The record is a 136-nucleotide RNA sequence from Lachnospiraceae bacterium G11, which matches "Ribosomal protein L10 leader" in Rfam. By type it is a cis-regulatory leader. Lineage of the source: Bacteria > Bacillati > Bacillota > Lachnospirales > Lachnospiraceae. The match comes from Rfam's covariance-model search (68 bits).
RNA sequence: AGAAACCAUACAAUAUCGCCGAAGACAGUGAGUGACCGAAAGGUCGUAAGCGUGUGAACCGCUCACCGAGGAAAGAGUUUAAGAUUAAUUUGCUCCUCUUUGUCUAUUCGGCAAAGAGGAGUUUUUACAUUUAAUA
Numbered sequence: 001a002g003a004a005a006c007c008a009u010a011c012a013a014u015a016u017c018g019c020c021g022a023a024g025a026c027a028g029u030g031a032g033u034g035a036c037c038g039a040a041a042g043g044u045c046g047u048a049a050g051c052g053u054g055u056g057a058a059c060c061g062c063u064c065a066c067c068g069a070g071g072a073a074a075g076a077g078u079u080u081a082a083g084a085u086u087a088a089u090u091u092g093c094u095c096c097u098c099u100u101u102g103u104c105u106a107u108u109c110g111g112c113a114a115a116g117a118g119g120a121g122u123u124u125u126u127a128c129a130u131u132u133a134a135u136a
Stems, first nucleotide, its partner, number of pairs: 028066006034045003093121012